This 73-nucleotide RNA sequence from Upupa epops belongs to the Rfam family "Small nucleolar RNA SNORD59".
It is annotated as a C/D-box small nucleolar RNA.
Clan: SNORD59 clan.
For this family Rfam cites "Purified box C/D snoRNPs are able to reproduce site-specific 2'-O-methylation of target RNA in vitro" (Galardi et al., Mol Cell Biol, 2002).
Its family is annotated with nucleolus and RNA processing in the Gene Ontology.
Pairs were carried over by alignment from the consensus structure, which was predicted with ILM.
RNA sequence: CCUUCGCUGAUGAGUGACCGUGUGACUUUCGUUCUUCUGAGCUCGCUGAAGCCGCUCUAUCGGUCUGAGGAGG
Numbered sequence: 001c002c003u004u005c006g007c008u009g010a011u012g013a014g015u016g017a018c019c020g021u022g023u024g025a026c027u028u029u030c031g032u033u034c035u036u037c038u039g040a041g042c043u044c045g046c047u048g049a050a051g052c053c054g055c056u057c058u059a060u061c062g063g064u065c066u067g068a069g070g071a072g073g
Base pairs, nucleotide, nucleotide: 001073002072003071005069
Dot-bracket structure: (((.(...............................................................).)))